Rfam assigns this 206-nucleotide RNA sequence from Nocardia uniformis to the family "Actinobacteria sRNA Ms_IGR-5".
Nucleotides: 206
Stems, first nucleotide, its partner, number of pairs: 014059006061109006068102003073097003128200013142160006
Number, partner (000 for none) and nucleotide at each position: 001000a002000c003000a004000c005000g006000g007000g008000a009000a010000a011000g012000g013000a014059g015058g016057u017056g018055g019054u020000u021000c022000a023000a024000g025000a026000g027000a028000u029000g030000g031000u032000u033000a034000u035000u036000u037000c038000u039000a040000g041000g042000a043000c044000g045000c046000g047000u048000g049000a050000g051000g052000u053000g054019g055018c056017u057016g058015c059014c060000a061109g062108c063107u064106a065105g066104g067000c068102g069101c070100u071000a072000c073097c074096g075095c076000u077000g078000c079000a080000a081000u082000c083000g084000g085000a086000u087000u088000c089000c090000g091000c092000u093000u094000c095075g096074c097073g098000c099000g100070a101069g102068c103000g104066c105065c106064u107063a108062g109061c110000g111000a112000a113000u114000c115000c116000a117000a118000g119000g120000c121000a122000g123000u124000c125000a126000c127000c128200c129199g130198g131197c132196c133195c134194c135193c136192g137191a138190g139189u140188c141000u142160c143159c144158c145157g146156a147155u148000c149000u150000g151000u152000c153000c154000g155147a156146u157145c158144g159143g160142g161000a162000u163000c164000u165000g166000c167000g168000u169000g170000a171000a172000g173000u174000u175000g176000c177000a178000u179000c180000c181000g182000c183000a184000g185000a186000a187000g188140g189139a190138c191137u192136c193135g194134g195133g196132g197131g198130c199129c200128g201000u202000a203000c204000c205000g206000u

The match comes from Rfam's covariance-model search (143 bits). It is annotated as a small RNA.